[Rfam]
A member of the RNA family "RpsF leader" from Proteus myxofaciens, 85 nucleotides long.
By type it is a cis-regulatory leader.
About the family: Conserved and widely distributed to many bacterial species RNA structure. It precedes operon containing rpsF, which encodes ribosomal protein S6. The motif also precedes operon containing rpsR, which encodes ribosomal protein S18.
On this family, see Fu et al., RNA 2014: "Bacterial RNA motif in the 5' UTR of rpsF interacts with an S6:S18 complex".
RNA sequence: GUCACACUUAAACAAGUUCCUUGCCUCCAUGGUUGGUGACUGACCCUGACAGGAGGCUGAUAAAUCCGUAAGGAGCAAUUCAAAU
Dot-bracket structure: ...............(((((((((((((..((............)).....))))))............))))))).........